[Rfam]
RNA sequence: UGGCACCCAACGUGGGGCCUGGACAUUGGGGAAUUCGCGAGGGAAGAGGCGUUUAAUCCAUCGACAAACGAAGUGGAAGUUAGUUCAAGAAAGAUCACCGUGUGAACCUGCCACGUUGCUCUUAAAGGUACAGUAACGCCUAAUUAUGGGACAAGAAUAAAGUAGGCAUAAAAUUUUUGUUAAGCAAUUAAAAGAAGCCUUAAAGACACGGGGAGUAAGGGUUAAGAGUAAUGAGCUUUUUAAGUUUUUUGACCUCAUCAAGGACACCUGCCCGU
Numbered sequence: 001u002g003g004c005a006c007c008c009a010a011c012g013u014g015g016g017g018c019c020u021g022g023a024c025a026u027u028g029g030g031g032a033a034u035u036c037g038c039g040a041g042g043g044a045a046g047a048g049g050c051g052u053u054u055a056a057u058c059c060a061u062c063g064a065c066a067a068a069c070g071a072a073g074u075g076g077a078a079g080u081u082a083g084u085u086c087a088a089g090a091a092a093g094a095u096c097a098c099c100g101u102g103u104g105a106a107c108c109u110g111c112c113a114c115g116u117u118g119c120u121c122u123u124a125a126a127g128g129u130a131c132a133g134u135a136a137c138g139c140c141u142a143a144u145u146a147u148g149g150g151a152c153a154a155g156a157a158u159a160a161a162g163u164a165g166g167c168a169u170a171a172a173a174u175u176u177u178u179g180u181u182a183a184g185c186a187a188u189u190a191a192a193a194g195a196a197g198c199c200u201u202a203a204a205g206a207c208a209c210g211g212g213g214a215g216u217a218a219g220g221g222u223u224a225a226g227a228g229u230a231a232u233g234a235g236c237u238u239u240u241u242a243a244g245u246u247u248u249u250u251g252a253c254c255u256c257a258u259c260a261a262g263g264a265c266a267c268c269u270g271c272c273c274g275u
Stems, first nucleotide, its partner, number of pairs: 006031003012026003036048001038046001085128002089123001094120001096118001099115004134154001139150004160201002162198002209251008219237002222234003260275001262273002265270001
RNA: Mason-Pfizer monkey virus packaging signal